[Rfam]
RNA sequence: GAAAAUCUAAAGAUAUUAUCAGGGCCUUCCAUAAGACCCCAAAGGCAAAUUUUGGCGACCUUUACUAUUUUAGUAAAGGUG
Numbered sequence: 001g002a003a004a005a006u007c008u009a010a011a012g013a014u015a016u017u018a019u020c021a022g023g024g025c026c027u028u029c030c031a032u033a034a035g036a037c038c039c040c041a042a043a044g045g046c047a048a049a050u051u052u053u054g055g056c057g058a059c060c061u062u063u064a065c066u067a068u069u070u071u072a073g074u075a076a077a078g079g080u081g
Base pairs, nucleotide, nucleotide: 022039023038024037026035027034028033058080059079060078061077062076063075064074065073066072